Annotation: This 54-nucleotide sequence from Salmo trutta belongs to the Rfam family "UnaL2 LINE 3' element". The family's RNA type in Rfam is cis-regulatory element. Gene Ontology term of the family: transposition, RNA-mediated. The family's consensus secondary structure is taken from published work. Taxonomically the source falls in Salmo (Eukaryota, Bilateria, Teleostei, Salmonidae).
RNA sequence: AACGAAGGUAACUGUAAGUCACUCUGGAUAAGAGUGUCUGCUAAAUGACUUAAA
Numbered sequence: 001a002a003c004g005a006a007g008g009u010a011a012c013u014g015u016a017a018g019u020c021a022c023u024c025u026g027g028a029u030a031a032g033a034g035u036g037u038c039u040g041c042u043a044a045a046u047g048a049c050u051u052a053a054a
Base pairs, nucleotide, nucleotide: 013043014041015040016039020036021035022034023033024032025031
Dot-bracket structure: ............((((...((((((.....))))))..))).)...........